[Rfam]
RNA sequence: GUGAAUAUCUUGCUCCGAAACUAGAUAACCUAAGGCCUUUUUUAAGGUGACGGUGACUAGGCUAGUGUUUAUACACUCGGGUAUUGUCGGAAACGAUAAUAUCUCCUAUUGGAAAGGAGUCUGUUAAGGCAAAGC
Numbered sequence: 001g002u003g004a005a006u007a008u009c010u011u012g013c014u015c016c017g018a019a020a021c022u023a024g025a026u027a028a029c030c031u032a033a034g035g036c037c038u039u040u041u042u043u044a045a046g047g048u049g050a051c052g053g054u055g056a057c058u059a060g061g062c063u064a065g066u067g068u069u070u071a072u073a074c075a076c077u078c079g080g081g082u083a084u085u086g087u088c089g090g091a092a093a094c095g096a097u098a099a100u101a102u103c104u105c106c107u108a109u110u111g112g113a114a115a116g117g118a119g120u121c122u123g124u125u126a127a128g129g130c131a132a133a134g135c
Stems, first nucleotide, its partner, number of pairs: 006126001012120005021060004026055001028054003035048005065076004079104011105112002